[Rfam]
RNA sequence: CGACUGUAACGGUCAUAACCCCAAGACGAGCCCACGCUCCCAACUCCCCCGCUCCAAAUUCUCAAUCUAACGAUUGAAGCUACCAACAGUGCCCAGUCCGAACACCGCGGUGACGAUCCACUCGUGUGGGAAACCCACGAUGCUGGUGUUGUCUUGAGCAAUGAAGAUGAUUUCUUGAGGGAGGUUUCACUCUGCAGAGAGCUCUUCACCUUGGUGUGGCGGUAUUGGAUUACAUUUGCUGUGUGGUUUGGAGAGGGGACUUGGGUUGGGUCUCUACUUUUUUU
Numbered sequence: 001c002g003a004c005u006g007u008a009a010c011g012g013u014c015a016u017a018a019c020c021c022c023a024a025g026a027c028g029a030g031c032c033c034a035c036g037c038u039c040c041c042a043a044c045u046c047c048c049c050c051g052c053u054c055c056a057a058a059u060u061c062u063c064a065a066u067c068u069a070a071c072g073a074u075u076g077a078a079g080c081u082a083c084c085a086a087c088a089g090u091g092c093c094c095a096g097u098c099c100g101a102a103c104a105c106c107g108c109g110g111u112g113a114c115g116a117u118c119c120a121c122u123c124g125u126g127u128g129g130g131a132a133a134c135c136c137a138c139g140a141u142g143c144u145g146g147u148g149u150u151g152u153c154u155u156g157a158g159c160a161a162u163g164a165a166g167a168u169g170a171u172u173u174c175u176u177g178a179g180g181g182a183g184g185u186u187u188c189a190c191u192c193u194g195c196a197g198a199g200a201g202c203u204c205u206u207c208a209c210c211u212u213g214g215u216g217u218g219g220c221g222g223u224a225u226u227g228g229a230u231u232a233c234a235u236u237u238g239c240u241g242u243g244u245g246g247u248u249u250g251g252a253g254a255g256g257g258g259a260c261u262u263g264g265g266u267u268g269g270g271u272c273u274c275u276a277c278u279u280u281u282u283u284u
Base pairs, nucleotide, nucleotide: 002014003013004012023281024280025279026278029275033270035268036267039265040264041263043261045259047258048257049256050255052253053252054251055250056249057248058247059246062077063076064075065074066073067072081245082244083243084241085240087238088237089235090234091233093228094227095226096225097224098222099221100220102217103216104215105214106213107212109210110209112153114151115150116149117148118146119145120144122140123139124138125137126136128135129134154158162208163207164206165205166204167203172201173200174199175198176197181192182191183190
The record is a 284-nucleotide RNA from Sclerotinia trifoliorum, which matches "Fungal signal recognition particle RNA" in Rfam. A search with the family's covariance model found it, with a score of 142 bits. Its family is annotated with SRP-dependent cotranslational protein targeting to membrane, signal sequence recognition, signal recognition particle, plasma membrane targeting and signal recognition particle, endoplasmic reticulum targeting in the Gene Ontology. For this family Rfam cites "Towards the structure of the mammalian signal recognition particle" (Wild et al., Curr Opin Struct Biol, 2002).